[Rfam]
RNA sequence: UAGUUACUAGGCGUUGCAAGCUUAAGCUCUUAUGGAGCGAAGGCGUAGGGAAACCGAGUGUGAAUAGCGCGAUUCAGUAACGUUUAGUAGACGCGAAACCACGUGAUCUAUCCAUGGCCAGAAUGAAGCUGUAAGAAAUUACAGUGGAGGUUCGAACGCACGAUAGUUGAAAAUAUUGGCGAUGAGCUGUGGAUCGGAGUGAAAGGCUAAUCAAACGUGGAAAUAGCUCGUU
Numbered sequence: 001u002a003g004u005u006a007c008u009a010g011g012c013g014u015u016g017c018a019a020g021c022u023u024a025a026g027c028u029c030u031u032a033u034g035g036a037g038c039g040a041a042g043g044c045g046u047a048g049g050g051a052a053a054c055c056g057a058g059u060g061u062g063a064a065u066a067g068c069g070c071g072a073u074u075c076a077g078u079a080a081c082g083u084u085u086a087g088u089a090g091a092c093g094c095g096a097a098a099c100c101a102c103g104u105g106a107u108c109u110a111u112c113c114a115u116g117g118c119c120a121g122a123a124u125g126a127a128g129c130u131g132u133a134a135g136a137a138a139u140u141a142c143a144g145u146g147g148a149g150g151u152u153c154g155a156a157c158g159c160a161c162g163a164u165a166g167u168u169g170a171a172a173a174u175a176u177u178g179g180c181g182a183u184g185a186g187c188u189g190u191g192g193a194u195c196g197g198a199g200u201g202a203a204a205g206g207c208u209a210a211u212c213a214a215a216c217g218u219g220g221a222a223a224u225a226g227c228u229c230g231u232u
Stems, first nucleotide, its partner, number of pairs: 005089013020044004026038003048055002058070004092230002095227001099220006108196001110194009119184001121153004128145007157181003161178005198208003
Dot-bracket structure: ....(((((((((((((..((((..(((.......)))..))))...((....))..((((.....))))......)))))))))))))..((.(...((((((...(.((((((((((.((((...(((((((....)))))))....))))...(((.(((((........))))))))..).))))))))).).(((.....)))......))))))......).))..
RNA: Bacterial large subunit ribosomal RNA, nucleotides 637 to 868